[Rfam]
RNA sequence: GUAUGCCUGUGUGUAGAAGGUGUUCAGUGCCAAUGACAUGCCCGUUUGCCUGUGUGUGGAUGGUGUAUAGCACCAGGGUCAGGUCUGUAUGCCU
Numbered sequence: 001g002u003a004u005g006c007c008u009g010u011g012u013g014u015a016g017a018a019g020g021u022g023u024u025c026a027g028u029g030c031c032a033a034u035g036a037c038a039u040g041c042c043c044g045u046u047u048g049c050c051u052g053u054g055u056g057u058g059g060a061u062g063g064u065g066u067a068u069a070g071c072a073c074c075a076g077g078g079u080c081a082g083g084u085c086u087g088u089a090u091g092c093c094u
Base pairs, nucleotide, nucleotide: 005084006083007082008081009080019074020073021072022071023070024069027066028065029064030063031062032061036053037052038051040049041048
RNA: mir-2060 microRNA precursor family
Organism: Branchiostoma floridae